[Rfam]
RNA sequence: ACGUCGGUUUAGCUCAGAGGAUAGUUCUGCAGUUGACAUGUCUUGUCUGACAUUUAUGCGCCUUUCGCGAGUUCGAUCACAGGCGCUGUCCGAUGCUUUU
Numbered sequence: 001a002c003g004u005c006g007g008u009u010u011a012g013c014u015c016a017g018a019g020g021a022u023a024g025u026u027c028u029g030c031a032g033u034u035g036a037c038a039u040g041u042c043u044u045g046u047c048u049g050a051c052a053u054u055u056a057u058g059c060g061c062c063u064u065u066c067g068c069g070a071g072u073u074c075g076a077u078c079a080c081a082g083g084c085g086c087u088g089u090c091c092g093a094u095g096c097u098u099u100u
Stems, first nucleotide, its partner, number of pairs: 002095006012084003017080001019078002026076002029073001
RNA: Vault RNA
Organism: Oryzias latipes